c-di-GMP-I riboswitch aptamer: a 103-nucleotide RNA from Paenibacillus swuensis.
A reference for the family is Weinberg et al. (2007), "Identification of 22 candidate structured RNAs in bacteria using the CMfinder comparative genomics pipeline", Nucleic Acids Res.
The organism belongs to Paenibacillus, within Bacteria.

RNA sequence: ACUAAAUACUGGCAAACUUGCAGAAAUGCAAGGACGCAAAGCCAUUGGGUCUUCCGUAGUAGGUAUAUAGUAACAACUGCUAUCAGAUCGCCAGGUUGCAAAU
Numbered sequence: 001a002c003u004a005a006a007u008a009c010u011g012g013c014a015a016a017c018u019u020g021c022a023g024a025a026a027u028g029c030a031a032g033g034a035c036g037c038a039a040a041g042c043c044a045u046u047g048g049g050u051c052u053u054c055c056g057u058a059g060u061a062g063g064u065a066u067a068u069a070g071u072a073a074c075a076a077c078u079g080c081u082a083u084c085a086g087a088u089c090g091c092c093a094g095g096u097u098g099c100a101a102a103u
Stems, first nucleotide, its partner, number of pairs: 012037002017032006040097004046093003049088003
Dot-bracket structure: ...........((...((((((....))))))...))..((((..((((((..................................)))..)))))))......